[Rfam]
RNA sequence: CAAACUCAUUGCCCAGGGAGGGAAGGCCAGGAUAUGCGGCCUAUACCUCUUUAACUGGGCAGUGCGUACC
Numbered sequence: 001c002a003a004a005c006u007c008a009u010u011g012c013c014c015a016g017g018g019a020g021g022g023a024a025g026g027c028c029a030g031g032a033u034a035u036g037c038g039g040c041c042u043a044u045a046c047c048u049c050u051u052u053a054a055c056u057g058g059g060c061a062g063u064g065c066g067u068a069c070c
Base pairs, nucleotide, nucleotide: 007064008063009062010061011060012059013058014057015056016055017050018049019048020047021046026040027039028038
This 70-nucleotide sequence from Orthohepacivirus hominis belongs to the Rfam family "Hepatitis C virus stem-loop VII".
A reference for the family is Pirakitikulr et al. (2016), "The Coding Region of the HCV Genome Contains a Network of Regulatory RNA Structures", Mol Cell.
The family's consensus secondary structure was predicted with RNAfold.